terC RNA: a 60-nucleotide RNA sequence from Microvirga aerophila.
[Rfam]
RNA sequence: UUUGCAGGCCGGGCCCCUCUGACAACCACGGUCGUGUGGCUGUGAUGUCGGACCGCAUCG
Numbered sequence: 001u002u003u004g005c006a007g008g009c010c011g012g013g014c015c016c017c018u019c020u021g022a023c024a025a026c027c028a029c030g031g032u033c034g035u036g037u038g039g040c041u042g043u044g045a046u047g048u049c050g051g052a053c054c055g056c057a058u059c060g
Stems, first nucleotide, its partner, number of pairs: 007053001009051004022043003026039004
Source information: A search with the family's covariance model found it, with a score of 51 bits. Pairs were carried over by alignment from the consensus structure, which is taken from published work. The family's RNA type in Rfam is cis-regulatory element.